About this RNA
Rfam assigns this 126-nucleotide sequence from Streptococcus sp. DD10 to the family "Ribosomal protein L20 leader". Rfam classes the family as a cis-regulatory leader. The base pairs follow the family's consensus structure, which was predicted with CMfinder. For this family Rfam cites "Diverse mechanisms for regulating ribosomal protein synthesis in Escherichia coli" (Zengel and Lindahl, Prog Nucleic Acid Res Mol Biol, 1994). The organism belongs to Streptococcus, within Bacteria. Rfam links the family to the GO term regulation of gene expression. It scores 74 bits against the family's covariance model.

[Rfam]
Nucleotides: 126
Stems, first nucleotide, its partner, number of pairs: 011026006028051003033046005089112009
Number, partner (000 for none) and nucleotide at each position: 001000u002000g003000a004000g005000a006000a007000a008000a009000g010000c011026a012025g013024a014023a015022g016021u017000g018000a019000g020000a021016g022015c023014u024013u025012c026011u027000c028051g029050c030049c031000u032000u033046g034045c035044g036043a037042c038000u039000c040000g041000c042037g043036u044035u045034g046033c047000c048000u049030g050029g051028c052000c053000c054000u055000a056000c057000g058000g059000a060000u061000g062000a063000a064000a065000g066000u067000u068000u069000c070000g071000a072000u073000g074000a075000a076000a077000c078000c079000a080000u081000c082000a083000u084000a085000g086000c087000g088000u089112g090111c091110g092109g093108g094107c095106u096105u097104g098000u099000g100000u101000a102000a103000a104097c105096a106095g107094g108093u109092c110091c111090g112089c113000u114000c115000u116000u117000g118000u119000u120000u121000u122000u123000c124000u125000c126000u